[Rfam]
RNA: Purine riboswitch aptamer
RNA sequence: UCCUAUAAAUAAAAAAUAAUGCGUAUAAUUUCGGGGAUAUGGCCCAGAGUUUCUACCAGACUACCGUAAAUGGUCUGACUACGCAAAAAAUAGAUAGGUCA
Numbered sequence: 001u002c003c004u005a006u007a008a009a010u011a012a013a014a015a016a017u018a019a020u021g022c023g024u025a026u027a028a029u030u031u032c033g034g035g036g037a038u039a040u041g042g043c044c045c046a047g048a049g050u051u052u053c054u055a056c057c058a059g060a061c062u063a064c065c066g067u068a069a070a071u072g073g074u075c076u077g078a079c080u081a082c083g084c085a086a087a088a089a090a091u092a093g094a095u096a097g098g099u100c101a
Stems, first nucleotide, its partner, number of pairs: 020085006029048003033045003057077007